[Rfam]
RNA sequence: GGUGUUUGCAGCAGUAACUUGCUACGGUCAGUAAUAUCACCGCCGAUGUGAUAAGGCAAACCACAGUUAGCAAAGGAGACAAAGGGGCCCCGCUCAAACAUAAUAAUUUGCGCAUCUUCACUUAAACGACGAGCGCGGGCAGCCGCCGAAGCACCACCAGCAACACCAC
Numbered sequence: 001g002g003u004g005u006u007u008g009c010a011g012c013a014g015u016a017a018c019u020u021g022c023u024a025c026g027g028u029c030a031g032u033a034a035u036a037u038c039a040c041c042g043c044c045g046a047u048g049u050g051a052u053a054a055g056g057c058a059a060a061c062c063a064c065a066g067u068u069a070g071c072a073a074a075g076g077a078g079a080c081a082a083a084g085g086g087g088c089c090c091c092g093c094u095c096a097a098a099c100a101u102a103a104u105a106a107u108u109u110g111c112g113c114a115u116c117u118u119c120a121c122u123u124a125a126a127c128g129a130c131g132a133g134c135g136c137g138g139g140c141a142g143c144c145g146c147c148g149a150a151g152c153a154c155c156a157c158c159a160g161c162a163a164c165a166c167c168a169c
Stems, first nucleotide, its partner, number of pairs: 001167006008161002011025001013023004032056001035053006061070001075155002084147002086144003092140004099133001101131001104128001107125002110123001112121001
A member of the RNA family "Vibrio RNA AS7" from Moritella sp. Urea-trap-13, 169 nucleotides long. A search with the family's covariance model found it, with a score of 146 bits. Rfam describes the family as follows. Identified by direct cloning an parallel sequencing experiments with 5S/tRNA depletion. Confirmed by Northern blot. The organism belongs to Moritella, within Bacteria.